[Rfam]
RNA sequence: UAACACAAUAUUCGCUCCCCCUCAACCGAGACCUAUAGGGAGGAUAAAUUACGUCUCUCAUAUCCACUAGUGAAGGGAUUAGUGGAAAUAUUAAUAUCG
Numbered sequence: 001u002a003a004c005a006c007a008a009u010a011u012u013c014g015c016u017c018c019c020c021c022u023c024a025a026c027c028g029a030g031a032c033c034u035a036u037a038g039g040g041a042g043g044a045u046a047a048a049u050u051a052c053g054u055c056u057c058u059c060a061u062a063u064c065c066a067c068u069a070g071u072g073a074a075g076g077g078a079u080u081a082g083u084g085g086a087a088a089u090a091u092u093a094a095u096a097u098c099g
Stems, first nucleotide, its partner, number of pairs: 015042005022037001028057005064085007

PhotoRC-II RNA: a 99-nucleotide sequence.
The base pairs follow the family's consensus structure, which is taken from published work.
By type it is a cis-regulatory element.
Rfam's curators put it in the seed alignment.